[Rfam]
RNA sequence: GAAAUCCUGUCCGAUAAGAUGCGAACCACAUCAUCGGUAGCAAACCUUGGAUACGCAGUGGUAACACUGCGGGUCAAGCGUAGGAAGUUAGGCAGUAGGGUCAUAAGGCAUGUUAGCGCCGAAAUCACGGAAAACCUGUGUGCUGACACUGUUUACUAAGUGGAAGGCAACACAUGUAUCAUCGUAAAGGUGAGAGGGUACAUGGCACAGCGGCGUUGGGAGUC
Number, nucleotide and partner (000 for none) at each position: 001g000002a000003a000004a000005u000006c000007c000008u000009g000010u000011c000012c036013g035014a034015u033016a000017a000018g000019a031020u030021g029022c000023g000024a000025a191026c190027c000028a000029c021030a020031u019032c000033a015034u014035c013036g012037g000038u090039a089040g088041c087042a000043a000044a000045c084046c083047u082048u080049g079050g075051a074052u073053a000054c071055g070056c069057a068058g067059u066060g065061g000062u000063a000064a000065c060066a059067c058068u057069g056070c055071g054072g000073g052074u051075c050076a000077a000078g000079c049080g048081u000082a047083g046084g045085a000086a000087g041088u040089u039090a038091g000092g000093c000094a000095g000096u000097a000098g000099g000100g000101u000102c000103a000104u000105a000106a000107g000108g000109c000110a000111u000112g000113u218114u000115a000116g216117c215118g214119c213120c212121g211122a000123a000124a000125u000126c000127a000128c000129g000130g000131a000132a000133a000134a000135c000136c210137u209138g208139u207140g206141u205142g168143c167144u166145g000146a000147c162148a161149c160150u159151g000152u000153u000154u000155a000156c000157u000158a000159a150160g149161u148162g147163g000164a000165a000166g144167g143168c142169a000170a000171c000172a000173c204174a203175u202176g201177u200178a199179u198180c197181a000182u195183c194184g000185u000186a000187a000188a000189g000190g026191u025192g000193a000194g183195a182196g000197g180198g179199u178200a177201c176202a175203u174204g173205g141206c140207a139208c138209a137210g136211c121212g120213g119214c118215g117216u116217u000218g113219g000220g000221a000222g000223u000224c000

Shown here is a 224-nucleotide RNA sequence from Schaedlerella arabinosiphila, a member of the family "Group II catalytic intron D1-D4-6".
The pairing is the family consensus, mapped onto this sequence.
NCBI's taxonomy places the organism under Bacteria, Bacillota, Lachnospirales, Lachnospiraceae, Schaedlerella.
Rfam's curators write: Group II introns are found in rRNA, tRNA and mRNA of organelles in fungi, plants and protists, and also in mRNA in bacteria.